[Rfam]
RNA sequence: UUUUCCGAUAGAGGUGCGGCAGACCAAGAGUAAGUAUCGAGAGCUGGCAGCAAUGAUGAUACUGAAAGGGGCUGACCGCCGAAGUGAAAGUUUUGGCCGGGAACUUUUGCUGGUCUUGCAUUUAAGAAAUGCCUGACUGUCACCUGAAUGUUUCAGGUGGAGUGCUAUCUUGCAC
Numbered sequence: 001u002u003u004u005c006c007g008a009u010a011g012a013g014g015u016g017c018g019g020c021a022g023a024c025c026a027a028g029a030g031u032a033a034g035u036a037u038c039g040a041g042a043g044c045u046g047g048c049a050g051c052a053a054u055g056a057u058g059a060u061a062c063u064g065a066a067a068g069g070g071g072c073u074g075a076c077c078g079c080c081g082a083a084g085u086g087a088a089a090g091u092u093u094u095g096g097c098c099g100g101g102a103a104c105u106u107u108u109g110c111u112g113g114u115c116u117u118g119c120a121u122u123u124a125a126g127a128a129a130u131g132c133c134u135g136a137c138u139g140u141c142a143c144c145u146g147a148a149u150g151u152u153u154c155a156g157g158u159g160g161a162g163u164g165c166u167a168u169c170u171u172g173c174a175c
Stems, first nucleotide, its partner, number of pairs: 007169005016079004021073002024070001033063006040057001083111012112138004118132005140160007

A member of the RNA family "Lysine riboswitch aptamer" from Sporomusa sphaeroides, 175 nucleotides long. The family's consensus secondary structure is taken from published work. Rfam 15.1 lists 3,224 matches to the family in 1,923 species.